[Rfam]
RNA sequence: CUCAUCACAAAGGGGAGCCGAUAUUGGCUGAGAGUGAUUAAAAUCAGACCCUUCAAACCUGUUCGAUAAUGCGAGUGUAGGGAUUGUGGUGGAGUAAUUU
Numbered sequence: 001c002u003c004a005u006c007a008c009a010a011a012g013g014g015g016a017g018c019c020g021a022u023a024u025u026g027g028c029u030g031a032g033a034g035u036g037a038u039u040a041a042a043a044u045c046a047g048a049c050c051c052u053u054c055a056a057a058c059c060u061g062u063u064c065g066a067u068a069a070u071g072c073g074a075g076u077g078u079a080g081g082g083a084u085u086g087u088g089g090u091g092g093a094g095u096a097a098u099u100u
Base pairs, nucleotide, nucleotide: 006088007087008086009085010084011052012051013050014049017028018027019026020025035046036045037044038043058081059080060079061078062075063074064073065072